[Rfam]
RNA sequence: UGGCUACAAAAUAAUUUAUUUUGUAGCUAUUUUAAGUUACGAUACUUGUUAUGUUAAUUUAUGAGAUUAUAGUAACUUCAUACUAAGUGGUUUAAUAUAACGUUAUGGUAAAUAUCUCUAUGUGUUAUAAUAACCCAACUAUUGUAUAUAUGUAUUGAUAUUAUCGUAAAUUAGUAUAUAAAAUUAUCGUAAAUGAAUAUGGGUACGGAAUAACUUUUGGCGCUC
Numbered sequence: 001u002g003g004c005u006a007c008a009a010a011a012u013a014a015u016u017u018a019u020u021u022u023g024u025a026g027c028u029a030u031u032u033u034a035a036g037u038u039a040c041g042a043u044a045c046u047u048g049u050u051a052u053g054u055u056a057a058u059u060u061a062u063g064a065g066a067u068u069a070u071a072g073u074a075a076c077u078u079c080a081u082a083c084u085a086a087g088u089g090g091u092u093u094a095a096u097a098u099a100a101c102g103u104u105a106u107g108g109u110a111a112a113u114a115u116c117u118c119u120a121u122g123u124g125u126u127a128u129a130a131u132a133a134c135c136c137a138a139c140u141a142u143u144g145u146a147u148a149u150a151u152g153u154a155u156u157g158a159u160a161u162u163a164u165c166g167u168a169a170a171u172u173a174g175u176a177u178a179u180a181a182a183a184u185u186a187u188c189g190u191a192a193a194u195g196a197a198u199a200u201g202g203g204u205a206c207g208g209a210a211u212a213a214c215u216u217u218u219g220g221c222g223c224u225c
Base pairs, nucleotide, nucleotide: 002224003223004222007219008218009217010216011215016213017212018211019210020209021208022207023206024205025204027202028201029200030199032197033196037192038191039190040189041188042187043186044185046183047182050178051177052176053175054174055173056172057171058170059169060168061167062166065165066164067163069161070160071159074155080147081146082145083144087142088141089140090139091138092137093132094131096129097128098127099126100125101124102123103122107117108116